[Rfam]
Bacillaceae-1 RNA: a 68-nucleotide RNA from Bacillus sp. T33-2. The organism belongs to Bacillus, within Bacteria. The family's consensus secondary structure is taken from published work. The match comes from Rfam's covariance-model search (60 bits). Rfam 15.1 lists 5,721 matches to the family in 247 species.
RNA sequence: GACAGAUGAACUUCGACUAAAAACCGCCACGUCCUGUGGCGAACGUCCACGUCAGCACAUCCUGUGCA
Number, nucleotide and partner (000 for none) at each position: 001g000002a000003c000004a000005g000006a000007u000008g000009a000010a000011c051012u000013u049014c000015g047016a046017c045018u000019a000020a000021a000022a000023a000024c000025c000026g040027c039028c038029a037030c036031g000032u000033c000034c000035u000036g030037u029038g028039g027040c026041g000042a000043a000044c000045g017046u016047c015048c000049a013050c000051g011052u000053c000054a000055g067056c066057a065058c064059a000060u000061c000062c000063u000064g058065u057066g056067c055068a000